RNA sequence: CAAGCCAGAAGAGGUGCGUCGCCCAGGUAAUGUGUCAGAGGAACCGUAUCCAAUGAAGACACAUGAGGGGGAGCAACGCCGAGGUAUCACGCACGCGGAGUGCCAUAUAUCGACUACAGAGGCUGAAUCCUCUGGGUUGUCACCAGAAUCGUUCGGCUAUCGGAUGA
Numbered sequence: 001c002a003a004g005c006c007a008g009a010a011g012a013g014g015u016g017c018g019u020c021g022c023c024c025a026g027g028u029a030a031u032g033u034g035u036c037a038g039a040g041g042a043a044c045c046g047u048a049u050c051c052a053a054u055g056a057a058g059a060c061a062c063a064u065g066a067g068g069g070g071g072a073g074c075a076a077c078g079c080c081g082a083g084g085u086a087u088c089a090c091g092c093a094c095g096c097g098g099a100g101u102g103c104c105a106u107a108u109a110u111c112g113a114c115u116a117c118a119g120a121g122g123c124u125g126a127a128u129c130c131u132c133u134g135g136g137u138u139g140u141c142a143c144c145a146g147a148a149u150c151g152u153u154c155g156g157c158u159a160u161c162g163g164a165u166g167a
Stems, first nucleotide, its partner, number of pairs: 016079004021074002024071001030064007083111005091103004112138004117134006140167003144163001146161001
Dot-bracket structure: ...............((((.((.(.....(((((((.....................)))))))......).)).))))...(((((...((((.....))))...)))))((((.((((((......)))))))))).(((.(.(..............).).)))
Shown here is a 167-nucleotide RNA from [Pantoea] beijingensis, a member of the family "Lysine riboswitch aptamer". The family's consensus secondary structure is taken from published work. Rfam links the family to the GO term lysine biosynthetic process.